A member of the RNA family "Plastid-psbA-1 3UTR RNA" from Ricinus communis, 125 nucleotides long. The family's RNA type in Rfam is cis-regulatory element. Lineage of the source: Eukaryota > Magnoliopsida > Mesangiospermae > Pentapetalae > Ricinus. The literature on the family includes a 2023 paper in Plant Commun by Richter et al., "Retrograde signaling in plants: A critical review focusing on the GUN pathway and beyond". Clan: Plastid-psbA 3UTR RNA clan. The family's consensus secondary structure was predicted with LocARNA. From the family's description: Plastid psbA-1 is a non-coding RNA (ncRNA) present in plastids. It was identified in inverted repeat sequences in the 3 prime untranslate region (3UTR) of photosystem II quinone-binding protein (psbA).
[Rfam]
Nucleotides: 125
Stems, first nucleotide, its partner, number of pairs: 008023005071125003075121003079117001080115003086109001089106005
Number, partner (000 for none) and nucleotide at each position: 001000u002000u003000g004000a005000a006000g007000c008023u009022c010021c011020a012019u013000c014000u015000a016000c017000a018000a019012a020011u021010g022009g023008a024000a025000a026000a027000g028000a029000u030000u031000u032000u033000g034000g035000u036000c037000u038000u039000a040000g041000u042000a043000u044000g045000c046000g047000u048000g049000a050000g051000u052000u053000c054000u055000u056000g057000a058000a059000a060000a061000u062000a063000a064000a065000a066000u067000a068000a069000a070000a071125g072124a073123a074000g075121g076120u077119g078000c079117a080115a081114u082113a083000a084000c085000c086109a087000a088000u089106u090105u091104c092103u093102u094000g095000u096000u097000c098000u099000a100000u101000c102093g103092a104091g105090a106089g107000g108000g109086u110000u111000g112000g113082u114081a115080u116000a117079u118000a119077u120076a121075u122000g123073u124072u125071u